[Rfam]
Streptomyces sRNA scr5239: a 178-nucleotide sequence from Actinacidiphila paucisporea. For this family Rfam cites "Streptomyces coelicolor sRNA scr5239 inhibits agarase expression by direct base pairing to the dagA coding region" (Vockenhuber and Suess, Microbiology, 2012). Its family is annotated with mRNA binding and negative regulation of translation in the Gene Ontology. Taxonomically the source falls in Actinacidiphila (Bacteria, Actinomycetes, Kitasatosporales, Streptomycetaceae).
RNA sequence: CCUCCGGGCUCCCCGCACAGGAGCGCGGAUCGAGGCGCGGCGUUCUCUGCCCUGACUACGCCCCCGCCUCGUGGUCGGCCCUAUCGGGCCCGCGGGGACCGCACACCCCGCCGGCCACGGUGCCGGCGUCAGCUCCGGGCUGCGGUGCCAAGAGAGGCUGAGGGUCCUCUCCCGGCAC
Numbered sequence: 001c002c003u004c005c006g007g008g009c010u011c012c013c014c015g016c017a018c019a020g021g022a023g024c025g026c027g028g029a030u031c032g033a034g035g036c037g038c039g040g041c042g043u044u045c046u047c048u049g050c051c052c053u054g055a056c057u058a059c060g061c062c063c064c065c066g067c068c069u070c071g072u073g074g075u076c077g078g079c080c081c082u083a084u085c086g087g088g089c090c091c092g093c094g095g096g097g098a099c100c101g102c103a104c105a106c107c108c109c110g111c112c113g114g115c116c117a118c119g120g121u122g123c124c125g126g127c128g129u130c131a132g133c134u135c136c137g138g139g140c141u142g143c144g145g146u147g148c149c150a151a152g153a154g155a156g157g158c159u160g161a162g163g164g165u166c167c168u169c170u171c172c173c174g175g176c177a178c
Stems, first nucleotide, its partner, number of pairs: 003029004008024005032070005037064001039062002042059002044055002075126005081120001086116002132146003136142002152171006